[Rfam]
RNA sequence: UGGCAACAGUGAUGACAGGAGUUGUAACUGUAGGUCGCGUUUCCUCGCUGCAUGGAGACACCAGUCCCUCUAAACUGAUGUUGCCA
Numbered sequence: 001u002g003g004c005a006a007c008a009g010u011g012a013u014g015a016c017a018g019g020a021g022u023u024g025u026a027a028c029u030g031u032a033g034g035u036c037g038c039g040u041u042u043c044c045u046c047g048c049u050g051c052a053u054g055g056a057g058a059c060a061c062c063a064g065u066c067c068c069u070c071u072a073a074a075c076u077g078a079u080g081u082u083g084c085c086a
Base pairs, nucleotide, nucleotide: 001086002085003084004083005082006081007080
Dot-bracket structure: (((((((........................................................................)))))))